RNA sequence: UUAAAGGUUUUCUAGGGUUCCGCAACUUUUUGUUGGACUGGUCCGAGAGAAAACUCACAGUGCGAUGCUGUGUCACGGAAGGAUAAAAGCCUGGGAGGA
Numbered sequence: 001u002u003a004a005a006g007g008u009u010u011u012c013u014a015g016g017g018u019u020c021c022g023c024a025a026c027u028u029u030u031u032g033u034u035g036g037a038c039u040g041g042u043c044c045g046a047g048a049g050a051a052a053a054c055u056c057a058c059a060g061u062g063c064g065a066u067g068c069u070g071u072g073u074c075a076c077g078g079a080a081g082g083a084u085a086a087a088a089g090c091c092u093g094g095g096a097g098g099a
Stems, first nucleotide, its partner, number of pairs: 007054006015044002020041002022038001023035004056072006074094001076097001080092003
RNA: Guanidine-I riboswitch aptamer